Actino-pnp RNA: a 65-nucleotide RNA sequence from Nocardia donostiensis.
Pairs were carried over by alignment from the consensus structure, which is taken from published work.

[Rfam]
RNA sequence: GUCGGUCUUCGGUAGUGGCUUUUCGGCAGUUCGGAUGUGCCGGCGAGCUUCGAUCGAUGACCGCC
Numbered sequence: 001g002u003c004g005g006u007c008u009u010c011g012g013u014a015g016u017g018g019c020u021u022u023u024c025g026g027c028a029g030u031u032c033g034g035a036u037g038u039g040c041c042g043g044c045g046a047g048c049u050u051c052g053a054u055c056g057a058u059g060a061c062c063g064c065c
Stems, first nucleotide, its partner, number of pairs: 001065001003063005009057005017049005023043006